RNA: small nucleolar RNA snoR114
Organism: Populus trichocarpa
RNA sequence: AAGCUAUGAGGAUAUCUGUGCUCAUGUGAUGAUAGGGUCUAUCACUACCGUCUGAUCUGCGGACGAAUUCGAGUGCAUCUGAGCUU
Dot-bracket structure: ((((..............................................................................))))